[Rfam]
RNA sequence: GUCGGUCUUCGGUAGUGGCCUCUCGAGUGGACAUCCGCCCGUCGGGCUUCGAUCGAUGACCGCC
Numbered sequence: 001g002u003c004g005g006u007c008u009u010c011g012g013u014a015g016u017g018g019c020c021u022c023u024c025g026a027g028u029g030g031a032c033a034u035c036c037g038c039c040c041g042u043c044g045g046g047c048u049u050c051g052a053u054c055g056a057u058g059a060c061c062g063c064c
Stems, first nucleotide, its partner, number of pairs: 001064001003062005009056005017048003021044001024041002027038004
RNA: Actino-pnp RNA
Organism: Nocardia farcinica